Source information
The family of this 77-nucleotide RNA sequence from Scyliorhinus torazame is "Mammalian CPEB3 ribozyme". The base pairs follow the family's consensus structure, which is taken from published work. About the family: The mammalian CPEB3 ribozyme is a self cleaving RNA located in the second intron of the CPEB3 gene which belongs to a family of genes regulating messenger RNA polyadenylation. This ribozyme is highly conserved and found only in mammals. The CPEB3 ribozyme is structurally and biochemically related to the human hepatitis delta virus (HDV) ribozyme and the HDV ribozyme is proposed to have arisen from the human transcriptome. There is currently only one other known self cleaving ribozyme in mammals, the CoTC motif.

RNA sequence: CGAGACACCGAGAUGGCCACAGAAUGUGCGUUCAUGAUGUGGCCAGACAGGUUGAUUAUCAACCUGCAAAUCCUUCU
Numbered sequence: 001c002g003a004g005a006c007a008c009c010g011a012g013a014u015g016g017c018c019a020c021a022g023a024a025u026g027u028g029c030g031u032u033c034a035u036g037a038u039g040u041g042g043c044c045a046g047a048c049a050g051g052u053u054g055a056u057u058a059u060c061a062a063c064c065u066g067c068a069a070a071u072c073c074u075u076c077u
Stems, first nucleotide, its partner, number of pairs: 015044004021077004026072001028040003048066007
Record summary: Taxonomically the source falls in Scyliorhinus (Eukaryota, Metazoa, Bilateria, Selachii).